[Rfam]
RNA sequence: CGCGGAACUGCUUCACAACGGAUCGUCCGGCACGUACCUGCCGGUGAAGGAGACAACGA
Numbered sequence: 001c002g003c004g005g006a007a008c009u010g011c012u013u014c015a016c017a018a019c020g021g022a023u024c025g026u027c028c029g030g031c032a033c034g035u036a037c038c039u040g041c042c043g044g045u046g047a048a049g050g051a052g053a054c055a056a057c058g059a
Stems, first nucleotide, its partner, number of pairs: 009051001011049005027044006

msiK RNA: a 59-nucleotide RNA sequence from Nocardioides currus. A search with the family's covariance model found it, with a score of 59 bits. It is annotated as a cis-regulatory element. The base pairs follow the family's consensus structure, which is taken from published work.